[Rfam]
RNA sequence: CUGCGGGGAUGAUCACCCUGAACUCUCUCUUGCUGAUGGGUCAGUGGAGAAUUAAAUCAGCCUGAGUGGC
Numbered sequence: 001c002u003g004c005g006g007g008g009a010u011g012a013u014c015a016c017c018c019u020g021a022a023c024u025c026u027c028u029c030u031u032g033c034u035g036a037u038g039g040g041u042c043a044g045u046g047g048a049g050a051a052u053u054a055a056a057u058c059a060g061c062c063u064g065a066g067u068g069g070c
Stems, first nucleotide, its partner, number of pairs: 001069004
RNA: Small nucleolar RNA SNORD26
Organism: Drymodes brunneopygia